[Rfam]
RNA sequence: UAUUAGUCAUAUGACUGACGGAAGUGGGAUAACCACGUGGAGUAUGACAAAAAAUAGCCGACCGUCUGGGCAAUAAGC
Numbered sequence: 001u002a003u004u005a006g007u008c009a010u011a012u013g014a015c016u017g018a019c020g021g022a023a024g025u026g027g028g029a030u031a032a033c034c035a036c037g038u039g040g041a042g043u044a045u046g047a048c049a050a051a052a053a054a055u056a057g058c059c060g061a062c063c064g065u066c067u068g069g070g071c072a073a074u075a076a077g078c
Stems, first nucleotide, its partner, number of pairs: 003051002006048007015039001017066005024036004055073001057071003